The record is an 82-nucleotide RNA from Dictyostelium discoideum, which matches "tRNA" in Rfam. It is annotated as a transfer RNA. Lineage of the source: Eukaryota > Evosea > Dictyosteliales > Dictyosteliaceae > Dictyostelium.
RNA sequence: GACAUCGUAGCAAAGUGGUCUAAUGCGUCUGACUAGAAAUCAGAUCCCUUCGGGGGCGCAGGUUCGAACCCUGCCGAUGUCG
Numbered sequence: 001g002a003c004a005u006c007g008u009a010g011c012a013a014a015g016u017g018g019u020c021u022a023a024u025g026c027g028u029c030u031g032a033c034u035a036g037a038a039a040u041c042a043g044a045u046c047c048c049u050u051c052g053g054g055g056g057c058g059c060a061g062g063u064u065c066g067a068a069c070c071c072u073g074c075c076g077a078u079g080u081c082g
Stems, first nucleotide, its partner, number of pairs: 001081007010026003028044005058074005